[Rfam]
RNA sequence: ACUUACCCGUCGGGAGAGCCCGUCCUGCAGCCGCAGGUCGGCGCCGAAGGAGCAACCGCCCCGGAAACUCUCAGGCAAAAGGACCGGCGGGCAUGU
Numbered sequence: 001a002c003u004u005a006c007c008c009g010u011c012g013g014g015a016g017a018g019c020c021c022g023u024c025c026u027g028c029a030g031c032c033g034c035a036g037g038u039c040g041g042c043g044c045c046g047a048a049g050g051a052g053c054a055a056c057c058g059c060c061c062c063g064g065a066a067a068c069u070c071u072c073a074g075g076c077a078a079a080a081g082g083a084c085c086g087g088c089g090g091g092c093a094u095g096u
Stems, first nucleotide, its partner, number of pairs: 006091008020041003043076003046072002050070003056064002